[Rfam]
RNA sequence: CUCUAUAAAGGCAAAUCCAUUGAAAAGUGGAGACGCAAAGCUAUAGGGGCUGAAAUGCCAGCCAGCUGCCGUAG
Numbered sequence: 001c002u003c004u005a006u007a008a009a010g011g012c013a014a015a016u017c018c019a020u021u022g023a024a025a026a027g028u029g030g031a032g033a034c035g036c037a038a039a040g041c042u043a044u045a046g047g048g049g050c051u052g053a054a055a056u057g058c059c060a061g062c063c064a065g066c067u068g069c070c071g072u073a074g
Stems, first nucleotide, its partner, number of pairs: 001074001003071001011036002016031006034061001039067004046063002048059003
This 74-nucleotide sequence from Paenibacillus lycopersici belongs to the Rfam family "c-di-GMP-I-GGC riboswitch aptamer".
A search with the family's covariance model found it, with a score of 62 bits.
Rfam links the family to the GO term cyclic-di-GMP binding.